[Rfam]
RNA sequence: GGUCCGAUGCACGUCGCCGGUAGCAGAAAAACGAGAAAUCAGUGACCGGAGAUGCCAUGAUUGGACCGAAAUAAACCUCAUGUUUCGCUUUCUGAUAGGAACCUGUGGAUCAUAACUUUGGUGAUCUACAGAGCCGUUUUCGGCGAUUACAUUU
Numbered sequence: 001g002g003u004c005c006g007a008u009g010c011a012c013g014u015c016g017c018c019g020g021u022a023g024c025a026g027a028a029a030a031a032c033g034a035g036a037a038a039u040c041a042g043u044g045a046c047c048g049g050a051g052a053u054g055c056c057a058u059g060a061u062u063g064g065a066c067c068g069a070a071a072u073a074a075a076c077c078u079c080a081u082g083u084u085u086c087g088c089u090u091u092c093u094g095a096u097a098g099g100a101a102c103c104u105g106u107g108g109a110u111c112a113u114a115a116c117u118u119u120g121g122u123g124a125u126c127u128a129c130a131g132a133g134c135c136g137u138u139u140u141c142g143g144c145g146a147u148u149a150c151a152u153u154u
Stems, first nucleotide, its partner, number of pairs: 002066007009058001012054004017049001019047003023040001085146005098135002103131003107127005
RNA: Small nucleolar RNA snoR2/U65
Organism: Hibiscus syriacus